[Rfam]
RNA: Small nucleolar RNA SNORA12
RNA sequence: ACUGGUGGUGGUUUGCUUUCUGGUGCAUUCGUUAAGUUUUCAAAUGAGGCUAACUCUGCCACAUACAUUACACAGAAGCUGGCAAAGGCUUGAUGACAAAGAGAUCUCUCUCAAGCCUUUCCCAUAUCCGAGGCUGGCUCUCACACGU
Numbered sequence: 001a002c003u004g005g006u007g008g009u010g011g012u013u014u015g016c017u018u019u020c021u022g023g024u025g026c027a028u029u030c031g032u033u034a035a036g037u038u039u040u041c042a043a044a045u046g047a048g049g050c051u052a053a054c055u056c057u058g059c060c061a062c063a064u065a066c067a068u069u070a071c072a073c074a075g076a077a078g079c080u081g082g083c084a085a086a087g088g089c090u091u092g093a094u095g096a097c098a099a100a101g102a103g104a105u106c107u108c109u110c111u112c113a114a115g116c117c118u119u120u121c122c123c124a125u126a127u128c129c130g131a132g133g134c135u136g137g138c139u140c141u142c143a144c145a146c147g148u
Stems, first nucleotide, its partner, number of pairs: 005062007022050001024048001026046004031041001075141001077139004081090003107133004